[Rfam]
RNA sequence: UAUAUAUAUUUCGCUGUUCUAAAGACAGUAGGUGCAGAAAUGCGUAAGUUUAUCGCCUACCGAGGAAGAGAAUUAUUACUAUGUAAUUUAUGCCUCUCCUCGGAAACUGGGAGAGGUUUUCUUUUGAACUG
Numbered sequence: 001u002a003u004a005u006a007u008a009u010u011u012c013g014c015u016g017u018u019c020u021a022a023a024g025a026c027a028g029u030a031g032g033u034g035c036a037g038a039a040a041u042g043c044g045u046a047a048g049u050u051u052a053u054c055g056c057c058u059a060c061c062g063a064g065g066a067a068g069a070g071a072a073u074u075a076u077u078a079c080u081a082u083g084u085a086a087u088u089u090a091u092g093c094c095u096c097u098c099c100u101c102g103g104a105a106a107c108u109g110g111g112a113g114a115g116g117u118u119u120u121c122u123u124u125u126g127a128a129c130u131g
Base pairs, nucleotide, nucleotide: 028060029059030058031057032056033055034043035042036041093116094115095114096113097112098111099110100109102107